[Rfam]
RNA sequence: AACGAGAAAUGCCGCGAGUGUGAAGCUGUUGCGAGUAUGCGGGUCAAUCGUCGCAACAGCUUC
Numbered sequence: 001a002a003c004g005a006g007a008a009a010u011g012c013c014g015c016g017a018g019u020g021u022g023a024a025g026c027u028g029u030u031g032c033g034a035g036u037a038u039g040c041g042g043g044u045c046a047a048u049c050g051u052c053g054c055a056a057c058a059g060c061u062u063c
Stems, first nucleotide, its partner, number of pairs: 022063013035049001039045001